FMN riboswitch aptamer (RFN element): a 136-nucleotide RNA from Collinsella sp. BA40. Rfam links the family to the GO term FMN binding.
[Rfam]
RNA sequence: CAUAUGUUUCAGGGCGGGGCGCGAUUCCCCACCGGCGGUGAGCGGCCACGCGCUGCAAGUCCGCGAACCGCAUACAGCGGCCGAUCCGGUGCGAUUCCGGAACCGACGGUUAUAGUCCGGAUGAAAGAAACGGAGG
Dot-bracket structure: ..(.((((((......(((.......))).[[((((((....................[[))))...((.........))....(((((.......)))))]])).(((.....]]))).......)))))).)..
The match comes from Rfam's covariance-model search (105 bits). Lineage of the source: Bacteria > Bacillati > Coriobacteriales > Coriobacteriaceae > Collinsella.